[Rfam]
RNA: Plant signal recognition particle RNA
Organism: Salvia splendens
RNA sequence: GCCGGGCCUUGUGACAUUGGCUUAUAACCCAAGUGGGGACAUUAAAUUGGUUGGAUGUUGGCCUAAACCAACUGACUUGGCCUUGUGGCGCUAAUUCUGGCCUGCCCGUUCCAAGCCAUGAGUUGGGCCAUGGAUCUUGUGCGAAGGCAUGGGUUUCUUGGCCUAUAGUGUGGAGGGCAUUGCGUCAGGCUGGUUUCACAGAGCAACAACCACCUCCCGCUCUUGGCAGUGGAAGGUUAACGAGACAGUGUGUCGCUAGCCCACUAAAGUUAGAUGUGUUGGCCCAAUUAUACAACUAUUUUU
Numbered sequence: 001g002c003c004g005g006g007c008c009u010u011g012u013g014a015c016a017u018u019g020g021c022u023u024a025u026a027a028c029c030c031a032a033g034u035g036g037g038g039a040c041a042u043u044a045a046a047u048u049g050g051u052u053g054g055a056u057g058u059u060g061g062c063c064u065a066a067a068c069c070a071a072c073u074g075a076c077u078u079g080g081c082c083u084u085g086u087g088g089c090g091c092u093a094a095u096u097c098u099g100g101c102c103u104g105c106c107c108g109u110u111c112c113a114a115g116c117c118a119u120g121a122g123u124u125g126g127g128c129c130a131u132g133g134a135u136c137u138u139g140u141g142c143g144a145a146g147g148c149a150u151g152g153g154u155u156u157c158u159u160g161g162c163c164u165a166u167a168g169u170g171u172g173g174a175g176g177g178c179a180u181u182g183c184g185u186c187a188g189g190c191u192g193g194u195u196u197c198a199c200a201g202a203g204c205a206a207c208a209a210c211c212a213c214c215u216c217c218c219g220c221u222c223u224u225g226g227c228a229g230u231g232g233a234a235g236g237u238u239a240a241c242g243a244g245a246c247a248g249u250g251u252g253u254c255g256c257u258a259g260c261c262c263a264c265u266a267a268a269g270u271u272a273g274a275u276g277u278g279u280u281g282g283c284c285c286a287a288u289u290a291u292a293c294a295a296c297u298a299u300u301u302u303u
Stems, first nucleotide, its partner, number of pairs: 001040001003038001004023005028037003044302003048298006055291003058287003061283003065279001069276002072273006079262002082259002085256002088253003092250002097248003101244001103242002106236002109234005115227004120222004125164006132157003136153007172217005184207002190201003